Overview: The family of this 93-nucleotide RNA from Poecilia formosa is "Small nucleolar SNORD12/SNORD106". NCBI's taxonomy places the organism under Eukaryota, Deuterostomia, Vertebrata, Poeciliinae, Poecilia. The base pairs follow the family's consensus structure, which was predicted with RNAalifold. The literature on the family includes a 2001 paper in EMBO J by Huttenhofer et al., "RNomics: an experimental approach that identifies 201 candidates for novel, small, non-messenger RNAs in mouse". Its family is annotated with nucleolus and RNA processing in the Gene Ontology.

[Rfam]
RNA sequence: GCUGUGGUCAAUGAUGCAUAAUCUUUUUUCCCCGUCUUAUCGACUAUGGUGAAAAUCAGUUGUUAAUAAGCCAACCAUGUCUGAAACCACAUC
Numbered sequence: 001g002c003u004g005u006g007g008u009c010a011a012u013g014a015u016g017c018a019u020a021a022u023c024u025u026u027u028u029u030c031c032c033c034g035u036c037u038u039a040u041c042g043a044c045u046a047u048g049g050u051g052a053a054a055a056u057c058a059g060u061u062g063u064u065a066a067u068a069a070g071c072c073a074a075c076c077a078u079g080u081c082u083g084a085a086a087c088c089a090c091a092u093c
Stems, first nucleotide, its partner, number of pairs: 001093001003091006